[Rfam]
RNA sequence: AAGUGUUAUAGCUCUUUUAGAAUUUGUCUAGUAGGUUUUCUGGUUCUUACCAGAAGACCCCC
Numbered sequence: 001a002a003g004u005g006u007u008a009u010a011g012c013u014c015u016u017u018u019a020g021a022a023u024u025u026g027u028c029u030a031g032u033a034g035g036u037u038u039u040c041u042g043g044u045u046c047u048u049a050c051c052a053g054a055a056g057a058c059c060c061c062c
Stems, first nucleotide, its partner, number of pairs: 034059011
This 62-nucleotide RNA from Rousettus aegyptiacus belongs to the Rfam family "U7 small nuclear RNA". Taxonomically the source falls in Rousettus (Eukaryota, Euteleostomi, Yinpterochiroptera, Pteropodoidea). Pairs were carried over by alignment from the consensus structure, which was predicted with PFOLD. A search with the family's covariance model found it, with a score of 76 bits. From the family's description: Animal histone pre-mRNAs are spliced by a different mechanism than nuclear pre-mRNAs and self-splicing introns. This processing involves the U7 snRNP, which contains only one RNA species: U7. The 5' end of U7 RNA is thought to base-pair to a conserved spacer element downstream of the cleavage site in histone pre-mRNA. This family contains a number of annotated U7 pseudogenes.